The family of this 131-nucleotide sequence from Caballeronia glathei is "Burkholderia sRNA Bp1_Cand684_SIPHT". Taxonomically the source falls in Caballeronia (Bacteria, Pseudomonadati, Pseudomonadota, Betaproteobacteria).

[Rfam]
RNA sequence: AAGAAAGUGACUGCCGCCCCGCACAGGGGCGAAGCUUAUAAACCAAUAUCAAAACAAGUUUCAUAGAAGCGCAAGCGCAUCAGACGGUGUAGUCACAACACGACCAACCCCCGUCCAAGCGCCAGCGACAC
Number, nucleotide and partner (000 for none) at each position: 001a000002a000003g000004a000005a000006a000007g000008u000009g000010a000011c092012u091013g090014c089015c031016g030017c029018c028019c027020c026021g000022c000023a000024c000025a000026g020027g019028g018029g017030c016031g015032a000033a000034g000035c000036u000037u000038a000039u000040a000041a000042a000043c000044c000045a000046a000047u000048a000049u000050c000051a000052a000053a000054a000055c000056a000057a000058g085059u084060u083061u000062c000063a000064u000065a000066g000067a000068a000069g000070c000071g000072c000073a000074a000075g000076c000077g000078c000079a000080u000081c000082a000083g060084a059085c058086g000087g000088u000089g014090u013091a012092g011093u000094c000095a000096c000097a000098a000099c000100a000101c000102g000103a000104c000105c000106a000107a000108c000109c000110c000111c000112c121113g120114u119115c000116c000117a000118a000119g114120c113121g112122c000123c000124a000125g000126c000127g000128a000129c000130a000131c000

A reference for the family is Khoo et al. (2012), "Computational discovery and RT-PCR validation of novel Burkholderia conserved and Burkholderia pseudomallei unique sRNAs", BMC Genomics.